A member of the RNA family "Small nucleolar RNA Z157/R69/R10" from Kingdonia uniflora, 98 nucleotides long. The family's RNA type in Rfam is C/D-box small nucleolar RNA. Rfam links the family to the GO terms RNA processing and nucleolus. It scores 67 bits against the family's covariance model. For this family Rfam cites "The high diversity of snoRNAs in plants: identification and comparative study of 120 snoRNA genes from Oryza sativa" (Chen et al., Nucleic Acids Res, 2003).
[Rfam]
RNA sequence: GAGUGUGUGGUGAUGAUACUUUUGUGGACUAGAGUUUCUGAUUGGGGGCUUAAAAAUCCUAAUUCUGAAGACAAACCCUUGGCUGUCUGAGCACUUCU
Dot-bracket structure: (.(.((((..........................((((...((((((.........))))))....))))....................)))).).)
Lineage of the source: Eukaryota > Viridiplantae > Streptophyta > Euphyllophyta > Kingdonia. Rfam 15.1 lists 836 matches to the family in 232 species.